[Rfam]
The family of this 445-nucleotide RNA sequence from Atrichornis clamosus is "Vertebrate telomerase RNA". From the family's description: Telomerase is a ribonucleoprotein reverse transcriptase that synthesises telomeric DNA. Telomerase RNAs differ greatly in sequence and structure between vertebrates, ciliates and yeasts, but they share a 5' pseudoknot structure close to the template sequence. Vertebrate telomerase RNAs have a 3' H/ACA snoRNA-like domain. Lineage of the source: Eukaryota > Chordata > Sarcopterygii > Australaves > Atrichornis. Clan: Telomerase clan.
RNA sequence: CCGUGCCGGGGUGGGCAGGCCCUGCGGCCAACUAACCCUAAUGGCGGCUGCGCCCCUCUCGUCCGCCCGCUGUUUUACUAGCUGACUUUCAGCGGGCGAAGGGAGCGGCCCGGGGAAAGGGGGGAGAAGAGAGAUCCGGCAUCAAAAAACGUCAGCGAGGGGGCUCCUCACCCCGGCCCACACUGGGGUCCCUGUCCCUCUCCCGCAGCAGGUGAUGCUCCCGCCGCCGCACCGCGCGGAGGCCGCGGUCGGCCGGCUCAGGGCCACUGCCGCCGCGAAGAGCUCGUCUCUGUCAGCCUCGGCGGCGGCCGGGAGCGGAGAGGCGGCCCGCCCACACUGGGCAGCCGGGGGACCCCAGCAGAACAAAACGGGCGCGGCGCCGCCGGGCUGGGCAGCCGCGGCUCCUCCAGUCGUGGGGUGCGCGGCCGGCGCCGCCCCGACACCU
Numbered sequence: 001c002c003g004u005g006c007c008g009g010g011g012u013g014g015g016c017a018g019g020c021c022c023u024g025c026g027g028c029c030a031a032c033u034a035a036c037c038c039u040a041a042u043g044g045c046g047g048c049u050g051c052g053c054c055c056c057u058c059u060c061g062u063c064c065g066c067c068c069g070c071u072g073u074u075u076u077a078c079u080a081g082c083u084g085a086c087u088u089u090c091a092g093c094g095g096g097c098g099a100a101g102g103g104a105g106c107g108g109c110c111c112g113g114g115g116a117a118a119g120g121g122g123g124g125a126g127a128a129g130a131g132a133g134a135u136c137c138g139g140c141a142u143c144a145a146a147a148a149a150c151g152u153c154a155g156c157g158a159g160g161g162g163g164c165u166c167c168u169c170a171c172c173c174c175g176g177c178c179c180a181c182a183c184u185g186g187g188g189u190c191c192c193u194g195u196c197c198c199u200c201u202c203c204c205g206c207a208g209c210a211g212g213u214g215a216u217g218c219u220c221c222c223g224c225c226g227c228c229g230c231a232c233c234g235c236g237c238g239g240a241g242g243c244c245g246c247g248g249u250c251g252g253c254c255g256g257c258u259c260a261g262g263g264c265c266a267c268u269g270c271c272g273c274c275g276c277g278a279a280g281a282g283c284u285c286g287u288c289u290c291u292g293u294c295a296g297c298c299u300c301g302g303c304g305g306c307g308g309c310c311g312g313g314a315g316c317g318g319a320g321a322g323g324c325g326g327c328c329c330g331c332c333c334a335c336a337c338u339g340g341g342c343a344g345c346c347g348g349g350g351g352a353c354c355c356c357a358g359c360a361g362a363a364c365a366a367a368a369c370g371g372g373c374g375c376g377g378c379g380c381c382g383c384c385g386g387g388c389u390g391g392g393c394a395g396c397c398g399c400g401g402c403u404c405c406u407c408c409a410g411u412c413g414u415g416g417g418g419u420g421c422g423c424g425g426c427c428g429g430c431g432c433c434g435c436c437c438c439g440a441c442a443c444c445u
Stems, first nucleotide, its partner, number of pairs: 005177011017165002020163004052106002055103002064098009081156006087149003183358007197323007217316007226306005244277005250272004255265003279291004370437004376433006396425005403418004